[Rfam]
RNA sequence: GGUCACGAGGUCCAGCGACAAGCCUUCCGGCGUGCUGGCCGGCAACCGCGUCCCGUCCACGGUGCCCCCGGAAGAAGACCCGCCCGCACCUCCGGUGCAGGAAGAACGGACG
Numbered sequence: 001g002g003u004c005a006c007g008a009g010g011u012c013c014a015g016c017g018a019c020a021a022g023c024c025u026u027c028c029g030g031c032g033u034g035c036u037g038g039c040c041g042g043c044a045a046c047c048g049c050g051u052c053c054c055g056u057c058c059a060c061g062g063u064g065c066c067c068c069c070g071g072a073a074g075a076a077g078a079c080c081c082g083c084c085c086g087c088a089c090c091u092c093c094g095g096u097g098c099a100g101g102a103a104g105a106a107c108g109g110a111c112g
Stems, first nucleotide, its partner, number of pairs: 001080004009040001012038005022031001041066003046062003050057001083101002086098005
The record is a 112-nucleotide RNA sequence from Cellulomonas sp. WB94, which matches "SAM (S-adenosyl methionine) riboswitch aptamer" in Rfam. Lineage of the source: Bacteria > Actinomycetota > Actinomycetes > Cellulomonadaceae > Cellulomonas. The base pairs follow the family's consensus structure, which is taken from published work.